[Rfam]
RNA: Fluoride riboswitch aptamer (crcB RNA motif)
Organism: Izhakiella capsodis
RNA sequence: GCGGCAUCGGGUGAUGGCGUUCCACCUGCCCCAACCGCCCUUUUUGGGCUGAUGACGCCUGGCAAACA
Dot-bracket structure: .........[[[[..((((((.]]]]..........((((.....))))....)))))).........